[Rfam]
RNA sequence: GCGCCCGUAGCUCAGAUGGAUAGAGCAAGGGUUUCCUAAACCCUGUGUCGCAGGUUCAAGUCCUGUCGGGCGCA
Number, nucleotide and partner (000 for none) at each position: 001g073002c072003g071004c070005c069006c068007g067008u000009a000010g026011c025012u024013c023014a000015g000016a000017u000018g000019g000020a000021u000022a000023g013024a012025g011026c010027a000028a044029g043030g042031g041032u040033u000034u000035c000036c000037u000038a000039a000040a032041c031042c030043c029044u028045g000046u000047g000048u000049c000050g066051c065052a064053g063054g062055u000056u000057c000058a000059a000060g000061u000062c054063c053064u052065g051066u050067c007068g006069g005070g004071c003072g002073c001074a000
Rfam assigns this 74-nucleotide RNA sequence from Candidatus Methylomirabilis lanthanidiphila to the family "tRNA".
Pairs were carried over by alignment from the consensus structure, which is taken from published work.